[Rfam]
Shown here is a 70-nucleotide RNA from Paracoccidioides lutzii, a member of the family "bZIP non canonical Hac1/Xbp1 intron". From the family's description: bZIP intron RNA is a non-canonical intron that was first reported in HAC1 gene in yeast and XBP1 gene in Metazoa. The match comes from Rfam's covariance-model search (52 bits).
Nucleotides: 070
Base pairs, nucleotide, nucleotide: 002069003068004067005066006065007064009062010061011060012059013058021039022038023037024036025035026034044056045055046054
Number, partner (000 for none) and nucleotide at each position: 001000u002069g003068a004067u005066u006065c007064c008000u009062c010061c011060g012059a013058c014000c015000u016000g017000a018000c019000a020000c021039a022038a023037c024036a025035u026034c027000c028000u029000g030000c031000a032000g033000c034026g035025a036024u037023g038022u039021u040000g041000u042000g043000c044056g045055a046054c047000c048000u049000g050000c051000a052000g053000u054046g055045u056044c057000a058013g059012u060011u061010g062009g063000a064007g065006g066005g067004a068003u069002c070000c